[Rfam]
RNA: Plant signal recognition particle RNA
Organism: Durio zibethinus
RNA sequence: GCCGAGCUAGGUAACGUCAGCUUGUAACCCGAGUGGGGGCGUUAAGGUGAUGGGCCAUUGGUUCUACUUACCGAGUCGGAUUCUUAGUGGCUUGUCUCUGGUCUGCCCGUUCCGAGCAGGGAGUUGAACCAUGGGAUCUGAGUGAAAGCUCUGGGUCUCUUGAUUCUUAGAGUGGAGGGCACCGCGUGAGGCUGGAUUCACAGAGCAGCGAAAACCUCCCGCUCUAUGCAGUGGAAGGAUAACAGUCCGGUGCCACUUAGAUUCAAUAUGGCUUUGUGGGUUGACCUCAACUGAACCGUCACCUUU
Numbered sequence: 001g002c003c004g005a006g007c008u009a010g011g012u013a014a015c016g017u018c019a020g021c022u023u024g025u026a027a028c029c030c031g032a033g034u035g036g037g038g039g040c041g042u043u044a045a046g047g048u049g050a051u052g053g054g055c056c057a058u059u060g061g062u063u064c065u066a067c068u069u070a071c072c073g074a075g076u077c078g079g080a081u082u083c084u085u086a087g088u089g090g091c092u093u094g095u096c097u098c099u100g101g102u103c104u105g106c107c108c109g110u111u112c113c114g115a116g117c118a119g120g121g122a123g124u125u126g127a128a129c130c131a132u133g134g135g136a137u138c139u140g141a142g143u144g145a146a147a148g149c150u151c152u153g154g155g156u157c158u159c160u161u162g163a164u165u166c167u168u169a170g171a172g173u174g175g176a177g178g179g180c181a182c183c184g185c186g187u188g189a190g191g192c193u194g195g196a197u198u199c200a201c202a203g204a205g206c207a208g209c210g211a212a213a214a215c216c217u218c219c220c221g222c223u224c225u226a227u228g229c230a231g232u233g234g235a236a237g238g239a240u241a242a243c244a245g246u247c248c249g250g251u252g253c254c255a256c257u258u259a260g261a262u263u264c265a266a267u268a269u270g271g272c273u274u275u276g277u278g279g280g281u282u283g284a285c286c287u288c289a290a291c292u293g294a295a296c297c298g299u300c301a302c303c304u305u306u
Stems, first nucleotide, its partner, number of pairs: 001040003004023005010017001028037003044305010056293002058290003061286001063284002066281001068279004073274005079264002082261003086257005092252001098250004103245003107238002110236005116229003120225005126166003130162002133159008141150003167172001174219005185210003192203003